Description:
This 131-nucleotide RNA from Vibrio ostreae belongs to the Rfam family "Gammaprotebacteria rimP leader". NCBI's taxonomy places the organism under Bacteria, Pseudomonadota, Vibrionales, Vibrionaceae, Vibrio. The literature on the family includes a 2010 paper in Genome Biol by Naville and Gautheret, "Premature terminator analysis sheds light on a hidden world of bacterial transcriptional attenuation". By type it is a cis-regulatory leader.
[Rfam]
RNA sequence: AGCAAUUCUCAAUUUAUCAGGGUCCAGCAACAAAAAACCCCGACUUUCGGGGUUUUUUGUUAUCUGAAUUUCUCCAAGAUGAAAUUCAGAUACUUGCUUGGAAUUUAAAUUGGGCUCUAUGCCCUUUUUUU
Numbered sequence: 001a002g003c004a005a006u007u008c009u010c011a012a013u014u015u016a017u018c019a020g021g022g023u024c025c026a027g028c029a030a031c032a033a034a035a036a037a038c039c040c041c042g043a044c045u046u047u048c049g050g051g052g053u054u055u056u057u058u059g060u061u062a063u064c065u066g067a068a069u070u071u072c073u074c075c076a077a078g079a080u081g082a083a084a085u086u087c088a089g090a091u092a093c094u095u096g097c098u099u100g101g102a103a104u105u106u107a108a109a110u111u112g113g114g115c116u117c118u119a120u121g122c123c124c125u126u127u128u129u130u131u
Stems, first nucleotide, its partner, number of pairs: 034056009112124004
Dot-bracket structure: .................................(((((((((.....))))))))).......................................................((((.....)))).......